[Rfam]
RNA: Alphaproteobacteria transfer-messenger RNA
Nucleotides: 365
Stems, first nucleotide, its partner, number of pairs: 040053005057201005067194007082179003086176003092108005109161007202217003207228003212224002329345004335362006
Number, partner (000 for none) and nucleotide at each position: 001000c002000c003000c004000u005000u006000u007000g008000c009000a010000u011000c012000c013000g014000g015000c016000g017000c018000c019000g020000c021000g022000u023000c024000g025000u026000c027000c028000u029000a030000u031000a032000u033000u034000u035000c036000a037000a038000g039000g040053g041052c042051c043050g044049g045000u046000u047000c048000g049044c050043c051042g052041g053040c054000u055000a056000u057201g058200a059199c060198g061197c062000u063000a064000a065000a066000c067194c068193c069192u070191g071190u072189c073188u074000g075000g076000a077000a078000u079000a080000a081000g082179c083178g084177u085000u086176g087175u088174g089000g090000a091000c092108c093107c094106g095105g096104g097000g098000g099000c100000a101000g102000u103000g104096c105095c106094c107093g108092g109161c110160g111159c112158c113157u114156c115155c116000a117000c118000c119000a120000g121000u122000u123000c124000c125000g126000g127000c128000c129000c130000c131000g132000c133000c134000a135000g136000c137000g138000g139000c140000g141000g142000c143000g144000g145000g146000g147000c148000c149000u150000c151000u152000c153000c154000u155115g156114g157113g158112g159111g160110c161109g162000a163000a164000a165000c166000a167000g168000g169000a170000u171000c172000g173000a174088c175087a176086c177084g178083c179082g180000u181000g182000g183000u184000a185000a186000a187000g188073a189072g190071g191070c192069a193068g194067g195000c196000u197061g198060u199059g200058u201057u202217c203216g204215g205000c206000a207228u208227g209226g210000c211000a212224c213223c214000a215204c216203c217202g218000u219000c220000a221000u222000c223213g224212g225000g226209c227208c228207a229000a230000a231000u232000g233000c234000a235000a236000u237000a238000g239000u240000u241000g242000c243000c244000a245000a246000c247000g248000a249000c250000a251000a252000c253000u254000a255000u256000g257000c258000u259000c260000c261000g262000g263000a264000a265000g266000c267000c268000g269000u270000c271000g272000c273000u274000g275000c276000g277000u278000a279000a280000u281000g282000c283000a284000g285000u286000g287000c288000u289000g290000g291000u292000g293000a294000c295000c296000g297000a298000u299000c300000u301000a302000a303000g304000c305000c306000c307000c308000g309000g310000g311000c312000g313000g314000u315000a316000g317000c318000a319000c320000g321000u322000u323000c324000g325000g326000g327000c328000g329345g330344g331343g332342u333000u334000c335362g336361g337360g338359g339358g340357g341000c342332a343331c344330c345329u346000g347000g348000c349000a350000a351000c352000a353000g354000a355000a356000g357340c358339c359338c360337c361336c362335c363000a364000c365000u